[Rfam]
RNA sequence: AGGAUCACCUCGGGGUGUCCUUCAAGGGCUGAGAUGCGAUCUGCGAACCCGUUGAACCUGAACCGGUUAAGACCGGCGGAGGGAAGGUUUGAGAUGAUCUC
Numbered sequence: 001a002g003g004a005u006c007a008c009c010u011c012g013g014g015g016u017g018u019c020c021u022u023c024a025a026g027g028g029c030u031g032a033g034a035u036g037c038g039a040u041c042u043g044c045g046a047a048c049c050c051g052u053u054g055a056a057c058c059u060g061a062a063c064c065g066g067u068u069a070a071g072a073c074c075g076g077c078g079g080a081g082g083g084a085a086g087g088u089u090u091g092a093g094a095u096g097a098u099c100u101c
Stems, first nucleotide, its partner, number of pairs: 007088004011051004016045001017029005036044003057082003063076004
About this RNA: This 101-nucleotide sequence from Litoreibacter roseus belongs to the Rfam family "TPP riboswitch aptamer (THI element)". The organism belongs to Litoreibacter, within Bacteria. It scores 71 bits against the family's covariance model. The base pairs follow the family's consensus structure, which is taken from published work.